[Rfam]
RNA: Photosynthesis regulatory RNA1
Organism: Nostoc minutum
RNA sequence: UUUAAAAAAUUUAGACUUCGGUAUCUUCCAUUGACAUUUGGGCUUCUCCUACUAACCUCGGCUAUUAAACCGAGGUUUUU
Numbered sequence: 001u002u003u004a005a006a007a008a009a010u011u012u013a014g015a016c017u018u019c020g021g022u023a024u025c026u027u028c029c030a031u032u033g034a035c036a037u038u039u040g041g042g043c044u045u046c047u048c049c050u051a052c053u054a055a056c057c058u059c060g061g062c063u064a065u066u067a068a069a070c071c072g073a074g075g076u077u078u079u080u
Stems, first nucleotide, its partner, number of pairs: 055076007